[Rfam]
Bacterial large signal recognition particle RNA: a 265-nucleotide sequence from Peptoanaerobacter stomatis. It scores 188 bits against the family's covariance model.
RNA sequence: CUGUGAUAGACGGGAAGUUAGCGGUGUCCUAUAACCUGCAAUCCGCUUUAGCAGGGUUGAAUUCCCAAUUUGAGUAUAUUUCUUGUAAGGCAGGCUGGUAUGAGAGAUGUUGAGAAUAUGGUCUUGUGCAAUACAGAUUUAUGAACCCCGUCAGGUCAGGAAUGAAGCAGCGGUAAGUAAACACCUGUAUGUGAUACAAGGGUGCUGUAUUUGAGUUUUUUAUGUCAGAACCGCUUGUGAGCAAUAUACGAUUUUGGGUUCACAG
Numbered sequence: 001c002u003g004u005g006a007u008a009g010a011c012g013g014g015a016a017g018u019u020a021g022c023g024g025u026g027u028c029c030u031a032u033a034a035c036c037u038g039c040a041a042u043c044c045g046c047u048u049u050a051g052c053a054g055g056g057u058u059g060a061a062u063u064c065c066c067a068a069u070u071u072g073a074g075u076a077u078a079u080u081u082c083u084u085g086u087a088a089g090g091c092a093g094g095c096u097g098g099u100a101u102g103a104g105a106g107a108u109g110u111u112g113a114g115a116a117u118a119u120g121g122u123c124u125u126g127u128g129c130a131a132u133a134c135a136g137a138u139u140u141a142u143g144a145a146c147c148c149c150g151u152c153a154g155g156u157c158a159g160g161a162a163u164g165a166a167g168c169a170g171c172g173g174u175a176a177g178u179a180a181a182c183a184c185c186u187g188u189a190u191g192u193g194a195u196a197c198a199a200g201g202g203u204g205c206u207g208u209a210u211u212u213g214a215g216u217u218u219u220u221u222a223u224g225u226c227a228g229a230a231c232c233g234c235u236u237g238u239g240a241g242c243a244a245u246a247u248a249c250g251a252u253u254u255u256g257g258g259u260u261c262a263c264a265g
Stems, first nucleotide, its partner, number of pairs: 001265006009058003012030004017025003035055005064258005074249005080243001082241008093232002096227006104220002106217003114212009123200006129191002132189005138181005148173004156165003